A member of the RNA family "mir-8364 microRNA precursor family" from Pristionchus pacificus, 61 nucleotides long. It scores 75 bits against the family's covariance model. Lineage of the source: Eukaryota > Metazoa > Protostomia > Nematoda > Pristionchus. The family's consensus secondary structure was predicted with RNAalifold.
[Rfam]
Nucleotides: 061
Base pairs, nucleotide, nucleotide: 001059002058003057004056005055006054007053010050012048013047014046015045016044017043019041020040021039022038
Number, partner (000 for none) and nucleotide at each position: 001059u002058c003057u004056u005055c006054a007053c008000u009000u010050c011000g012048c013047g014046u015045a016044c017043u018000c019041u020040c021039u022038u023000a024000c025000c026000g027000g028000u029000c030000a031000a032000a033000g034000u035000g036000a037000c038022g039021a040020g041019a042000g043017a044016g045015u046014g047013u048012g049000u050010g051000a052000a053007g054006u055005g056004a057003a058002g059001a060000g061000a